Rhodo-rpoB RNA: a 92-nucleotide sequence from Palleronia salina. By type it is a cis-regulatory element. The family's consensus secondary structure is taken from published work. NCBI's taxonomy places the organism under Bacteria, Pseudomonadota, Alphaproteobacteria, Roseobacteraceae, Palleronia. The match comes from Rfam's covariance-model search (70 bits).
[Rfam]
RNA sequence: GGAUCGGGCGGCGACCGGUGGGACGGUCGCCAGGUAUGGAUCCACUGCCCCCGUUUCGUCAGGACGCGCGGCCCCGCCCCAAGGGUCGUGCC
Numbered sequence: 001g002g003a004u005c006g007g008g009c010g011g012c013g014a015c016c017g018g019u020g021g022g023a024c025g026g027u028c029g030c031c032a033g034g035u036a037u038g039g040a041u042c043c044a045c046u047g048c049c050c051c052c053g054u055u056u057c058g059u060c061a062g063g064a065c066g067c068g069c070g071g072c073c074c075c076g077c078c079c080c081a082a083g084g085g086u087c088g089u090g091c092c
Stems, first nucleotide, its partner, number of pairs: 001043005010031008066091009